[Rfam]
RNA sequence: AGCUUUGCGCAGAGGCGAUAACGUAGACAAUGAGGUUGUACCGAGUCGCGUUUAUUGCUAGAUGAAAACUUUUCCCAAUACCCCGCGUUGCCGCCGUGACAUACCGUCGGCAAAUGCAAUUUUUGC
Numbered sequence: 001a002g003c004u005u006u007g008c009g010c011a012g013a014g015g016c017g018a019u020a021a022c023g024u025a026g027a028c029a030a031u032g033a034g035g036u037u038g039u040a041c042c043g044a045g046u047c048g049c050g051u052u053u054a055u056u057g058c059u060a061g062a063u064g065a066a067a068a069c070u071u072u073u074c075c076c077a078a079u080a081c082c083c084c085g086c087g088u089u090g091c092c093g094c095c096g097u098g099a100c101a102u103a104c105c106g107u108c109g110g111c112a113a114a115u116g117c118a119a120u121u122u123u124u125g126c
Stems, first nucleotide, its partner, number of pairs: 020052005026047003034042003085117003088113006095106002